[Rfam]
RNA sequence: GCGUGGGUCGGCCCGCUGCGCGGAUCGGGUGGGCCGGGGGAUGCCGCUGCCUCAAUCCCCGCGGGUGGCGGAACGGUCCGGGGGGCGCAUCCCGCCUCCCGGACCGCG
Numbered sequence: 001g002c003g004u005g006g007g008u009c010g011g012c013c014c015g016c017u018g019c020g021c022g023g024a025u026c027g028g029g030u031g032g033g034c035c036g037g038g039g040g041a042u043g044c045c046g047c048u049g050c051c052u053c054a055a056u057c058c059c060c061g062c063g064g065g066u067g068g069c070g071g072a073a074c075g076g077u078c079c080g081g082g083g084g085g086c087g088c089a090u091c092c093c094g095c096c097u098c099c100c101g102g103a104c105c106g107c108g
Stems, first nucleotide, its partner, number of pairs: 001107002006074001008072001009036009037042001044071009075105013
About this RNA: A member of the RNA family "Streptomyces RNA 4115" from Streptomyces xanthophaeus, 108 nucleotides long. On this family, see Vockenhuber et al., RNA Biol 2011: "Deep sequencing-based identification of small non-coding RNAs in Streptomyces coelicolor". Rfam describes the family as follows. Identified by deep sequencing of transcriptome at the end of exponential growth phase. Sequencing size consistent with notrthern blot size.